[Rfam]
This 53-nucleotide RNA from Roseicyclus elongatus belongs to the Rfam family "ffh sRNA". Lineage of the source: Bacteria > Pseudomonadati > Pseudomonadota > Roseobacteraceae > Roseicyclus elongatus. The match comes from Rfam's covariance-model search (52 bits).
RNA sequence: AUUCGGCAGGAUCGCCCCCCGUCAGCGAGGAUUCGCCCACGGGGGUCAAGGUC
Numbered sequence: 001a002u003u004c005g006g007c008a009g010g011a012u013c014g015c016c017c018c019c020c021g022u023c024a025g026c027g028a029g030g031a032u033u034c035g036c037c038c039a040c041g042g043g044g045g046u047c048a049a050g051g052u053c
Stems, first nucleotide, its partner, number of pairs: 016045007025036004
The literature on the family includes a 2009 paper in BMC Genomics by Meyer et al., "Identification of candidate structured RNAs in the marine organism 'Candidatus Pelagibacter ubique'". The family's consensus secondary structure is taken from published work.